Source information:
The family of this 83-nucleotide RNA sequence from Piaya cayana is "Small nucleolar RNA SNORD72". Its family is annotated with RNA processing and nucleolus in the Gene Ontology. snoRNA HBII-240 belongs to the CD family of snoRNAs. It is the human orthologue of the mouse MBII-240 and is predicted to guide 2'O-ribose methylation of the large 28S rRNA at residue U4590. The organism belongs to Piaya, within Eukaryota. On this family, see Huttenhofer et al., EMBO J 2001: "RNomics: an experimental approach that identifies 201 candidates for novel, small, non-messenger RNAs in mouse". The base pairs follow the family's consensus structure. The family's RNA type in Rfam is C/D-box small nucleolar RNA.
[Rfam]
RNA sequence: AGCUUGUCUGUGAUCUUUCUUAUUAAAAAUGUCUGAACAUGUAUAAACUCCAUAGUGAUUUCAGUACAUUACUGAGAGAAGCU
Numbered sequence: 001a002g003c004u005u006g007u008c009u010g011u012g013a014u015c016u017u018u019c020u021u022a023u024u025a026a027a028a029a030u031g032u033c034u035g036a037a038c039a040u041g042u043a044u045a046a047a048c049u050c051c052a053u054a055g056u057g058a059u060u061u062c063a064g065u066a067c068a069u070u071a072c073u074g075a076g077a078g079a080a081g082c083u
Stems, first nucleotide, its partner, number of pairs: 002082004007077002